[Rfam]
The record is an 81-nucleotide sequence from Blautia faecicola, which matches "ZMP/ZTP riboswitch aptamer (pfl RNA motif)" in Rfam. The organism belongs to Blautia, within Bacteria.
RNA sequence: GAAGAUUCUGGCGACUGACGGAUAUGUGGAGGAACCACUGGAAACCAGAAUCCAUAUUGGCCGACCGUCUGGGCAGCAAUG
Numbered sequence: 001g002a003a004g005a006u007u008c009u010g011g012c013g014a015c016u017g018a019c020g021g022a023u024a025u026g027u028g029g030a031g032g033a034a035c036c037a038c039u040g041g042a043a044a045c046c047a048g049a050a051u052c053c054a055u056a057u058u059g060g061c062c063g064a065c066c067g068u069c070u071g072g073g074c075a076g077c078a079a080u081g
Stems, first nucleotide, its partner, number of pairs: 004052008015041002017069005026038004058076001060074003